[Rfam]
RNA sequence: UAAUAUAGAGGAUAGAACAGGUAGCUAUCACCACACAGAAAUGUGUUAGGAGAUGUGGAAUGACCGACCACCUAUAUUA
Numbered sequence: 001u002a003a004u005a006u007a008g009a010g011g012a013u014a015g016a017a018c019a020g021g022u023a024g025c026u027a028u029c030a031c032c033a034c035a036c037a038g039a040a041a042u043g044u045g046u047u048a049g050g051a052g053a054u055g056u057g058g059a060a061u062g063a064c065c066g067a068c069c070a071c072c073u074a075u076a077u078u079a
Base pairs, nucleotide, nucleotide: 001079002078003077004076005075006074007073008072011029012028013027014026015025020065021064022063031050033046034045035044036043055071056070057069058068
The record is a 79-nucleotide sequence, which matches "skipping-rope RNA" in Rfam.
By type it is a small RNA.